[Rfam]
Rfam assigns this 58-nucleotide RNA from Thalassomonas sp. M1454 to the family "Pseudomonas sRNA P26".
The literature on the family includes a 2006 paper in Nucleic Acids Res by Livny et al., "Identification of 17 Pseudomonas aeruginosa sRNAs and prediction of sRNA-encoding genes in 10 diverse pathogens using the bioinformatic tool sRNAPredict2".
The family's consensus secondary structure was predicted with RNAalifold.

RNA sequence: UUUUUACAGAUUAUCUGCCUAAUUAGGCAAUGGCUGGUGGCUUAAUCGUCACCGGCCU
Numbered sequence: 001u002u003u004u005u006a007c008a009g010a011u012u013a014u015c016u017g018c019c020u021a022a023u024u025a026g027g028c029a030a031u032g033g034c035u036g037g038u039g040g041c042u043u044a045a046u047c048g049u050c051a052c053c054g055g056c057c058u
Stems, first nucleotide, its partner, number of pairs: 016029004032057010